[Rfam]
A member of the RNA family "Small Cajal body specific RNA 4" from Ceuthmochares aereus, 131 nucleotides long.
The family has 24 seed sequences and 634 matches in Rfam 15.1.
From the family's description: scaRNAs are a specific class of small nuclear RNAs which localise to the Cajal bodies and guide the modification of RNA polymerase II transcribed spliceosomal RNAs U1, U2, U4, U5 and U12. ACA26 belongs to the H/ACA box class of guide RNAs as it has the predicted hairpin-hinge-hairpin-tail structure, conserved H/ACA-box motifs and is found associated with GAR1.
Rfam links the family to the GO terms Cajal body, nucleolus and RNA processing.
Pairs were carried over by alignment from the consensus structure, which was predicted with RNAfold.
It scores 79 bits against the family's covariance model.
RNA sequence: ACUGGAGGACUAGUCAGACCGAGUCUGGAGAGUGAGACUUGGAUCACAAUAGCCUCCUAAAAAAAAAGAGGGAUGGAGAGAGCAGCCCUGCUUAAAGAAGAGCACAGGGCCGACUGCGCCAUCCGACACUG
Numbered sequence: 001a002c003u004g005g006a007g008g009a010c011u012a013g014u015c016a017g018a019c020c021g022a023g024u025c026u027g028g029a030g031a032g033u034g035a036g037a038c039u040u041g042g043a044u045c046a047c048a049a050u051a052g053c054c055u056c057c058u059a060a061a062a063a064a065a066a067a068g069a070g071g072g073a074u075g076g077a078g079a080g081a082g083c084a085g086c087c088c089u090g091c092u093u094a095a096a097g098a099a100g101a102g103c104a105c106a107g108g109g110c111c112g113a114c115u116g117c118g119c120c121a122u123c124c125g126a127c128a129c130u131g
Stems, first nucleotide, its partner, number of pairs: 003059001004057005017044001019042001021040006070124003081115002083112001085110005093104001